Description: A member of the RNA family "Archaeal RNase P" from Halomicrobium zhouii, 366 nucleotides long. The source organism's lineage runs through Archaea, Methanobacteriota, Halobacteria, Haloarculaceae and Halomicrobium. About the family: Ribonuclease P (RNase P) is a ubiquitous endoribonuclease, found in archaea, bacteria and eukarya as well as chloroplasts and mitochondria. Its best characterised activity is the generation of mature 5'-ends of tRNAs by cleaving the 5'-leader elements of precursor-tRNAs. Cellular RNase Ps are ribonucleoproteins. RNA from bacterial RNase Ps retains its catalytic activity in the absence of the protein subunit, i.e. it is a ribozyme. Clan: RNaseP clan. Its family is annotated with ribonuclease P activity, tRNA processing and multimeric ribonuclease P complex in the Gene Ontology. It scores 164 bits against the family's covariance model.
[Rfam]
RNA sequence: GGCAGAGGGAGCCCGGCCUCCGUCGCCCGGACCGCACCGCGCAAGGGCGAUGAGGAAAGUCCCCCCACCAGCCGGGCAGGUGACCGGACGCAAGUCCGGGGCGGGAGACCGUCGGCUAUGGAACAGAAACGAGACCGCUCCGCGGGACCGAUGAGGUGCGCGAACCCGGACCGACGCGGCUUCGGCCGAUAAGAGACGGGGAGCUAACCCACCGAGGACUGAUCGCGGAGAACGGAUGGAACGGCGAAUCCUCACCGGUGCAAGUCCGCGCCGACAGGUAGCCCGGUUCCCGCGCCGUCGGGCGCGUGGGCGCGGACGCUCAGCCGAAUGCCGGGCCGAACAGAAGGGGGCUUACUCCCCUCAGCC
Numbered sequence: 001g002g003c004a005g006a007g008g009g010a011g012c013c014c015g016g017c018c019u020c021c022g023u024c025g026c027c028c029g030g031a032c033c034g035c036a037c038c039g040c041g042c043a044a045g046g047g048c049g050a051u052g053a054g055g056a057a058a059g060u061c062c063c064c065c066c067a068c069c070a071g072c073c074g075g076g077c078a079g080g081u082g083a084c085c086g087g088a089c090g091c092a093a094g095u096c097c098g099g100g101g102c103g104g105g106a107g108a109c110c111g112u113c114g115g116c117u118a119u120g121g122a123a124c125a126g127a128a129a130c131g132a133g134a135c136c137g138c139u140c141c142g143c144g145g146g147a148c149c150g151a152u153g154a155g156g157u158g159c160g161c162g163a164a165c166c167c168g169g170a171c172c173g174a175c176g177c178g179g180c181u182u183c184g185g186c187c188g189a190u191a192a193g194a195g196a197c198g199g200g201g202a203g204c205u206a207a208c209c210c211a212c213c214g215a216g217g218a219c220u221g222a223u224c225g226c227g228g229a230g231a232a233c234g235g236a237u238g239g240a241a242c243g244g245c246g247a248a249u250c251c252u253c254a255c256c257g258g259u260g261c262a263a264g265u266c267c268g269c270g271c272c273g274a275c276a277g278g279u280a281g282c283c284c285g286g287u288u289c290c291c292g293c294g295c296c297g298u299c300g301g302g303c304g305c306g307u308g309g310g311c312g313c314g315g316a317c318g319c320u321c322a323g324c325c326g327a328a329u330g331c332c333g334g335g336c337c338g339a340a341c342a343g344a345a346g347g348g349g350g351c352u353u354a355c356u357c358c359c360c361u362c363a364g365c366c
Base pairs, nucleotide, nucleotide: 001366002365003364005362006361007360008359009358010356011355012335013334014333015332016331017330021052022051023050024049025048026047027046028045057353058352059351061350062349063348064347065346066260067259068258069257079256080255081254082253083252084099085098086097087096088095100113101112102111103110104109114251115250119247121245135235136234137233138230139229140228141227142226143225144224145223156212157211264317265316266315267314268313269312270311271310272309